Notes: Shown here is a 136-nucleotide RNA sequence from Erinaceus europaeus, a member of the family "Small Cajal body specific RNA 3".
RNA sequence: AGUGGAACCUGUGGGAAGCAAGCAUGUGGGCAGAGAGAAUGCCCUCUGUCUGCACAGAGCAGUGUUCCUGCAGAAGCAUGGCGGUCUCUGUCUGACUUGAGAUAGUCACUAAGUCAUAUCGUCCCCCCCGUACAAU
Numbered sequence: 001a002g003u004g005g006a007a008c009c010u011g012u013g014g015g016a017a018g019c020a021a022g023c024a025u026g027u028g029g030g031c032a033g034a035g036a037g038a039a040u041g042c043c044c045u046c047u048g049u050c051u052g053c054a055c056a057g058a059g060c061a062g063u064g065u066u067c068c069u070g071c072a073g074a075a076g077c078a079u080g081g082c083g084g085u086c087u088c089u090g091u092c093u094g095a096c097u098u099g100a101g102a103u104a105g106u107c108a109c110u111a112a113g114u115c116a117u118a119u120c121g122u123c124c125c126c127c128c129c130g131u132a133c134a135a136u
Stems, first nucleotide, its partner, number of pairs: 004068003009062004025054007036045002080129002083126002088121001090119002094115006
Background: scaRNAs are a specific class of small nuclear RNAs which localise to the Cajal bodies and guide the modification of RNA polymerase II transcribed spliceosomal RNAs U1, U2, U4, U5 and U12. It is annotated as a small Cajal body RNA. Its family is annotated with nucleolus, RNA processing and Cajal body in the Gene Ontology. The match comes from Rfam's covariance-model search (93 bits). For this family Rfam cites "RNomics: an experimental approach that identifies 201 candidates for novel, small, non-messenger RNAs in mouse" (Huttenhofer et al., EMBO J, 2001). Pairs were carried over by alignment from the consensus structure, which was predicted with RNAalifold. NCBI's taxonomy places the organism under Eukaryota, Bilateria, Craniata, Erinaceinae, Erinaceus.